Shown here is a 122-nucleotide RNA from Halalkalibacter oceani, a member of the family "Ribosomal protein L20 leader". The family's RNA type in Rfam is cis-regulatory leader. The organism belongs to Halalkalibacter, within Bacteria. Rfam describes the family as follows. This family is a putative r-protein leader autoregulatory structure found in B. subtilis and other low-GC Gram-positive bacteria. Its family is annotated with regulation of gene expression in the Gene Ontology.
RNA sequence: GACACAAAGCAGAAGCGCCCGCUUCUCACCUGAUUGACGCGAAUGCAGUUGGCAGGUACAAUAACAUUCAUUUUUCAAAUGAACAAAGUGUGGGCGUAUUGUGCCUGCACUUUUUUUAUAUU
Numbered sequence: 001g002a003c004a005c006a007a008a009g010c011a012g013a014a015g016c017g018c019c020c021g022c023u024u025c026u027c028a029c030c031u032g033a034u035u036g037a038c039g040c041g042a043a044u045g046c047a048g049u050u051g052g053c054a055g056g057u058a059c060a061a062u063a064a065c066a067u068u069c070a071u072u073u074u075u076c077a078a079a080u081g082a083a084c085a086a087a088g089u090g091u092g093g094g095c096g097u098a099u100u101g102u103g104c105c106u107g108c109a110c111u112u113u114u115u116u117u118a119u120a121u122u
Stems, first nucleotide, its partner, number of pairs: 011026006028057003036050003039046002089109009